[Rfam]
RNA sequence: GCCCUCACUAAUGCUGCGUUUCUUUGCUCACAUACUGAUGGCUGGUAUCCCCACGCUCAUCUUAAAUGGCAAAUGAGAAAUUCGGAGUAAUCCUCAACCUCUGUCAUCAACCCGUAGCACGCACCUGCGCCUGCGGAUUGCUCUGACCACUGCCCGUGAGGGUCUGCCAUGACAUGCAUGGCUGCACUUGGCAUCAGAAAUCUCAGCCGCCGUGCCUCGUCCUCUUUUUGAAGAUGAGUUCUCGGUCUCUGGCUAUGGGAGCCGGUGCGAGGAUUGUGUGUACUGCCUCGGCGAGGAGUACGAUCACCUUAGUGCAAUACGCAGCGUAUCUGUAAUCCUCUUAACACGCCGCUGUAUUAUUACAGCACGUAGAGGACUGAAGGAUAUCAUUCAAUUCCGAUUACUCUGGUGAGGGC
Numbered sequence: 001g002c003c004c005u006c007a008c009u010a011a012u013g014c015u016g017c018g019u020u021u022c023u024u025u026g027c028u029c030a031c032a033u034a035c036u037g038a039u040g041g042c043u044g045g046u047a048u049c050c051c052c053a054c055g056c057u058c059a060u061c062u063u064a065a066a067u068g069g070c071a072a073a074u075g076a077g078a079a080a081u082u083c084g085g086a087g088u089a090a091u092c093c094u095c096a097a098c099c100u101c102u103g104u105c106a107u108c109a110a111c112c113c114g115u116a117g118c119a120c121g122c123a124c125c126u127g128c129g130c131c132u133g134c135g136g137a138u139u140g141c142u143c144u145g146a147c148c149a150c151u152g153c154c155c156g157u158g159a160g161g162g163u164c165u166g167c168c169a170u171g172a173c174a175u176g177c178a179u180g181g182c183u184g185c186a187c188u189u190g191g192c193a194u195c196a197g198a199a200a201u202c203u204c205a206g207c208c209g210c211c212g213u214g215c216c217u218c219g220u221c222c223u224c225u226u227u228u229u230g231a232a233g234a235u236g237a238g239u240u241c242u243c244g245g246u247c248u249c250u251g252g253c254u255a256u257g258g259g260a261g262c263c264g265g266u267g268c269g270a271g272g273a274u275u276g277u278g279u280g281u282a283c284u285g286c287c288u289c290g291g292c293g294a295g296g297a298g299u300a301c302g303a304u305c306a307c308c309u310u311a312g313u314g315c316a317a318u319a320c321g322c323a324g325c326g327u328a329u330c331u332g333u334a335a336u337c338c339u340c341u342u343a344a345c346a347c348g349c350c351g352c353u354g355u356a357u358u359a360u361u362a363c364a365g366c367a368c369g370u371a372g373a374g375g376a377c378u379g380a381a382g383g384a385u386a387u388c389a390u391u392c393a394a395u396u397c398c399g400a401u402u403a404c405u406c407u408g409g410u411g412a413g414g415g416c
Stems, first nucleotide, its partner, number of pairs: 001416004008409003013325007023073004037061005042055001083399005092272004152163004166182005184268005190262001205254003326387006